[Rfam]
RNA sequence: GUUGGAUAUGGCGACGUAGUCCCCAAAACACCAUUUGGUAAAUUACUAGGGACUGUAUGUGCUUUGGUUGGUGUUCUAGCCAUAGCUUUACCGAGUCCUGUCAUAGCGACACGAU
Numbered sequence: 001g002u003u004g005g006a007u008a009u010g011g012c013g014a015c016g017u018a019g020u021c022c023c024c025a026a027a028a029c030a031c032c033a034u035u036u037g038g039u040a041a042a043u044u045a046c047u048a049g050g051g052a053c054u055g056u057a058u059g060u061g062c063u064u065u066g067g068u069u070g071g072u073g074u075u076c077u078a079g080c081c082a083u084a085g086c087u088u089u090a091c092c093g094a095g096u097c098c099u100g101u102c103a104u105a106g107c108g109a110c111a112c113g114a115u
Stems, first nucleotide, its partner, number of pairs: 001115002004112001005110001007108001009106001011104001013102004019096002037077002040074001049063002
A member of the RNA family "Potassium channel RNA editing signal" from Exaiptasia diaphana, 115 nucleotides long. This family represents a group of sequences related to the human potassium channel Kv1.1 hairpin element which directs the efficient modification of an adenosine to inosine by an adenosine deaminase acting on RNA (ADAR). The ADAR modification causes an isoleucine/valine recoding event which lies in the ion-conducting pore of the potassium channel. By type it is a cis-regulatory element.